The record is a 102-nucleotide RNA sequence from Amedibacterium intestinale, which matches "Purine riboswitch aptamer" in Rfam. The base pairs follow the family's consensus structure, which is taken from published work. NCBI's taxonomy places the organism under Bacteria, Bacillota, Erysipelotrichia, Erysipelotrichaceae, Amedibacterium.
[Rfam]
RNA sequence: AUACAAAAGGUUUUAAUAAGUCAUAUAUGGCGCAAAUAUGGUGCGUUAAGUUUCUACCCGGUAGCCGUAAAUUAUCGGACUAUGAUGAUAUUAGAAAUGUCU
Numbered sequence: 001a002u003a004c005a006a007a008a009g010g011u012u013u014u015a016a017u018a019a020g021u022c023a024u025a026u027a028u029g030g031c032g033c034a035a036a037u038a039u040g041g042u043g044c045g046u047u048a049a050g051u052u053u054c055u056a057c058c059c060g061g062u063a064g065c066c067g068u069a070a071a072u073u074a075u076c077g078g079a080c081u082a083u084g085a086u087g088a089u090a091u092u093a094g095a096a097a098u099g100u101c102u
Base pairs, nucleotide, nucleotide: 020086021085022084023083024082025081029047030046031045032044033043034042058078059077060076061075062074063073064072